FMN riboswitch aptamer (RFN element): a 136-nucleotide RNA. Gene Ontology term of the family: FMN binding. The base pairs follow the family's consensus structure, which is taken from published work.
[Rfam]
RNA sequence: UGCUAUUCUCAGGGCGGAGUGAAAUUCUCCACUGGUGGUAAUUUAAAAUAGGUUAAAAAGUCCACGAGCACCAUGAAGUGUUGAUUUGGUGAAAGUCCAAAACCAACGGUUAAAGUCCGGAUGAAAGAGAAUUUAG
Numbered sequence: 001u002g003c004u005a006u007u008c009u010c011a012g013g014g015c016g017g018a019g020u021g022a023a024a025u026u027c028u029c030c031a032c033u034g035g036u037g038g039u040a041a042u043u044u045a046a047a048a049u050a051g052g053u054u055a056a057a058a059a060g061u062c063c064a065c066g067a068g069c070a071c072c073a074u075g076a077a078g079u080g081u082u083g084a085u086u087u088g089g090u091g092a093a094a095g096u097c098c099a100a101a102a103c104c105a106a107c108g109g110u111u112a113a114a115g116u117c118c119g120g121a122u123g124a125a126a127g128a129g130a131a132u133u134u135a136g
Stems, first nucleotide, its partner, number of pairs: 005132006017029003031116002033105002035065004060103002068081003085101005107119003